Glycine riboswitch aptamer: a 110-nucleotide RNA sequence from Pseudonocardia oroxyli. This family represents the bacterial glycine riboswitch. The match comes from Rfam's covariance-model search (57 bits).

RNA sequence: CGAUCCCACGCGGGAGAGACCCGGCCGAGCACUGCAGGCACCACAGGCCGGGCGCCGAAGGAGCAACUCCUCCCCGGAACCUCUCAGGCACCCGAGACCGCGUGGGCGAG
Number, nucleotide and partner (000 for none) at each position: 001c000002g000003a000004u000005c000006c105007c104008a103009c102010g101011c100012g099013g098014g000015a000016g000017a000018g000019a000020c052021c051022c050023g049024g048025c047026c046027g000028a000029g000030c000031a000032c000033u000034g000035c000036a000037g000038g000039c000040a000041c000042c000043a000044c000045a000046g026047g025048c024049c023050g022051g021052g020053c000054g089055c088056c087057g085058a084059a000060g000061g083062a082063g081064c000065a000066a000067c077068u076069c000070c000071u000072c000073c000074c000075c000076g068077g067078a000079a000080c000081c063082u062083c061084u058085c057086a000087g056088g055089c054090a000091c000092c000093c000094g000095a000096g000097a000098c013099c012100g011101c010102g009103u008104g007105g006106g000107c000108g000109a000110g000